[Rfam]
RNA sequence: AUGUGAUGAUGAAUUAUGAAAUUUUUACAUGUUAGACUUCAGAGAUUAUUAUAGAUCUGUGAGAAGAAAAUUAAUUUUUCUGAGUCAUAA
Numbered sequence: 001a002u003g004u005g006a007u008g009a010u011g012a013a014u015u016a017u018g019a020a021a022u023u024u025u026u027a028c029a030u031g032u033u034a035g036a037c038u039u040c041a042g043a044g045a046u047u048a049u050u051a052u053a054g055a056u057c058u059g060u061g062a063g064a065a066g067a068a069a070a071u072u073a074a075u076u077u078u079u080c081u082g083a084g085u086c087a088u089a090a
Base pairs, nucleotide, nucleotide: 001088002087003086004084044057045056046055047054

Small nucleolar RNA R64/Z200 family: a 90-nucleotide sequence from Kingdonia uniflora. For this family Rfam cites "Purified box C/D snoRNPs are able to reproduce site-specific 2'-O-methylation of target RNA in vitro" (Galardi et al., Mol Cell Biol, 2002). Rfam 15.1 lists 748 matches to the family in 228 species. The family's RNA type in Rfam is C/D-box small nucleolar RNA.